This 131-nucleotide RNA from Polypterus senegalus belongs to the Rfam family "Small nucleolar RNA SNORA68". A reference for the family is Ganot et al. (1997), "The family of box ACA small nucleolar RNAs is defined by an evolutionarily conserved secondary structure and ubiquitous sequence elements essential for RNA accumulation", Genes Dev. Its family is annotated with RNA processing and nucleolus in the Gene Ontology. Rfam 15.1 lists 1,079 matches to the family in 643 species. The family's consensus secondary structure was predicted with PFOLD. The source organism's lineage runs through Eukaryota, Vertebrata, Teleostomi, Actinopterygii and Polypterus. Rfam describes the family as follows. U68 is a member of the H/ACA class of small nucleolar RNAs (snoRNAs) which act as guides in the the modification of uridines to pseudouridines.
RNA sequence: AGUGCACACUAAACCCAAAGAUCAUUAUUUCAAUUGUAUAAUGCUCUUGCCUGUUGUGCACAGAUUAAAUGUGCCUUGUCGCCUUUCGUAGGCCGCUGUGCUUUCGAAAGUGAAUUCAAGGGACUACAUUU
Dot-bracket structure: .(((((((...........((.((((((.........)))))).))........))))))).........((.((((.....((((((.((((......)))).)))))).......)))).)).......